RNA sequence: AAAUAUUGUAAUUAGAGAGGUAACUAUGAUAACUCUGUAGGCAUUACUUCGAACGAGUUAAAGAAUCGAAUACGUUAUGAAAGCCCUUCUACUAGUGAUUAGCCUUGUCGUGAUUAGCGUGGUGGUGAUUAUUAACCCACUGUGCGGGGCAACGCUUGGAGCAAGAAAGGCUUAAAAAUCAAGCCAGAACUCUAAAAAACCCCCGCACCGAAAGGUCCGGGGGUUUUUUUUGACCUGGCAAAAACUUAGUAAAUCUGCAAGGAACAAACAAUGAACAGUAGCAUAAAAUUCUGUUGUUCCCCUCGGAA
Numbered sequence: 001a002a003a004u005a006u007u008g009u010a011a012u013u014a015g016a017g018a019g020g021u022a023a024c025u026a027u028g029a030u031a032a033c034u035c036u037g038u039a040g041g042c043a044u045u046a047c048u049u050c051g052a053a054c055g056a057g058u059u060a061a062a063g064a065a066u067c068g069a070a071u072a073c074g075u076u077a078u079g080a081a082a083g084c085c086c087u088u089c090u091a092c093u094a095g096u097g098a099u100u101a102g103c104c105u106u107g108u109c110g111u112g113a114u115u116a117g118c119g120u121g122g123u124g125g126u127g128a129u130u131a132u133u134a135a136c137c138c139a140c141u142g143u144g145c146g147g148g149g150c151a152a153c154g155c156u157u158g159g160a161g162c163a164a165g166a167a168a169g170g171c172u173u174a175a176a177a178a179u180c181a182a183g184c185c186a187g188a189a190c191u192c193u194a195a196a197a198a199a200c201c202c203c204c205g206c207a208c209c210g211a212a213a214g215g216u217c218c219g220g221g222g223g224u225u226u227u228u229u230u231u232g233a234c235c236u237g238g239c240a241a242a243a244a245c246u247u248a249g250u251a252a253a254u255c256u257g258c259a260a261g262g263a264a265c266a267a268a269c270a271a272u273g274a275a276c277a278g279u280a281g282c283a284u285a286a287a288a289u290u291c292u293g294u295u296g297u298u299c300c301c302c303u304c305g306g307a308a
Base pairs, nucleotide, nucleotide: 006032007031008030009029011027012026016021037073038072039071042068044065045064048061050057085262086261087260090257091256093251094250097245099243100242102239103238104237106232107231109119110118111117121141122140123139124138125137127136129134143160145158146157147156148155163191170185172183173182194229195228196227197226198225199224200223201222202221203220204219205218207216208215209214263295264294265293266292268290271284272283273282
This 308-nucleotide RNA sequence from Pantoea ananatis belongs to the Rfam family "Soft rot Enterobacteriaceae Rev 39 5'UTR". Its family is annotated with cellular response to starvation in the Gene Ontology. Pairs were carried over by alignment from the consensus structure, which was predicted with RNAfold. Rfam classes the family as a cis-regulatory element. From the family's description: From bacteria cultured under starvation conditions. On this family, see Kwenda et al., BMC Genomics 2016: "Discovery and profiling of small RNAs responsive to stress conditions in the plant pathogen Pectobacterium atrosepticum".